RNA sequence: AUGCGAAUCUUCUCGCUGUCCUGAUAUCGUGGUGAUCAGGGGAGGCUAGACAUUCGCUAUAUUAAAGCUAAGUAUUGUGUCGGCCAGGACUGGAUUGCUGUUCUAGUGCUGGCUUUGUAAAUGCUAGUGACAUGU
Number, nucleotide and partner (000 for none) at each position: 001a000002u000003g057004c056005g055006a000007a000008u000009c000010u000011u000012c000013u000014c000015g000016c044017u043018g000019u041020c040021c039022u038023g037024a036025u035026a000027u000028c000029g000030u000031g000032g000033u000034g000035a025036u024037c023038a022039g021040g020041g019042g000043a017044g016045g000046c000047u000048a000049g000050a000051c000052a000053u000054u000055c005056g004057c003058u000059a000060u000061a000062u000063u000064a000065a000066a000067g128068c127069u126070a125071a000072g124073u123074a000075u000076u000077g000078u000079g000080u000081c000082g000083g000084c112085c111086a110087g109088g000089a107090c106091u105092g104093g103094a000095u000096u000097g000098c000099u000100g000101u000102u000103c093104u092105a091106g090107u089108g000109c087110u086111g085112g084113c000114u000115u000116u000117g000118u000119a000120a000121a000122u000123g073124c072125u070126a069127g068128u067129g000130a000131c000132a000133u000134g000135u000